[Rfam]
RNA sequence: AUAUACACUGAGUGGCCAGAUUAUUAUGAAUUAUGAUCUCUGAGUGCAUAAUAAUCUGGCCACUCAGUGUGUGU
Numbered sequence: 001a002u003a004u005a006c007a008c009u010g011a012g013u014g015g016c017c018a019g020a021u022u023a024u025u026a027u028g029a030a031u032u033a034u035g036a037u038c039u040c041u042g043a044g045u046g047c048a049u050a051a052u053a054a055u056c057u058g059g060c061c062a063c064u065c066a067g068u069g070u071g072u073g074u
Base pairs, nucleotide, nucleotide: 004071005070006069007068008067009066010065011064012063013062014061015060016059017058019056020055021054022053023052024051025050026049027048028047
Shown here is a 74-nucleotide sequence from Pipistrellus kuhlii, a member of the family "mir-9256 microRNA precursor family". Pairs were carried over by alignment from the consensus structure, which was predicted with RNAalifold.